[Rfam]
RNA sequence: UCCGCCGUAGUGUAAUCGGCAGCACUUCAGAUUUUGGUUCUGACAGUCCAGGUUCGAGCCCUGGCGGCGGAG
Numbered sequence: 001u002c003c004g005c006c007g008u009a010g011u012g013u014a015a016u017c018g019g020c021a022g023c024a025c026u027u028c029a030g031a032u033u034u035u036g037g038u039u040c041u042g043a044c045a046g047u048c049c050a051g052g053u054u055c056g057a058g059c060c061c062u063g064g065c066g067g068c069g070g071a072g
Stems, first nucleotide, its partner, number of pairs: 001071007010025004027043005048064005
Shown here is a 72-nucleotide sequence from Prauserella cavernicola, a member of the family "tRNA". The base pairs follow the family's consensus structure, which is taken from published work. A search with the family's covariance model found it, with a score of 59 bits. Gene Ontology term of the family: triplet codon-amino acid adaptor activity. The family's RNA type in Rfam is transfer RNA.